[Rfam]
Annotation: The record is a 79-nucleotide RNA from Olpidium bornovanus, which matches "HDV ribozyme from F. prausnitzii" in Rfam. The literature on the family includes a 2009 paper in Science by Webb et al., "Widespread occurrence of self-cleaving ribozymes". It scores 45 bits against the family's covariance model. The base pairs follow the family's consensus structure, which is taken from published work.
RNA sequence: GGGGAGCUUGUCAAACACCUCCACGUGGUGCUCCCUGGGCAACGGCCUCUGUAAAUGCAGAGCCGGCUAAGAUUUGACG
Numbered sequence: 001g002g003g004g005a006g007c008u009u010g011u012c013a014a015a016c017a018c019c020u021c022c023a024c025g026u027g028g029u030g031c032u033c034c035c036u037g038g039g040c041a042a043c044g045g046c047c048u049c050u051g052u053a054a055a056u057g058c059a060g061a062g063c064c065g066g067c068u069a070a071g072a073u074u075u076g077a078c079g
Stems, first nucleotide, its partner, number of pairs: 001036007017029003043065004
About this RNA
The family has 48 seed sequences and 3,803 matches in Rfam 15.1.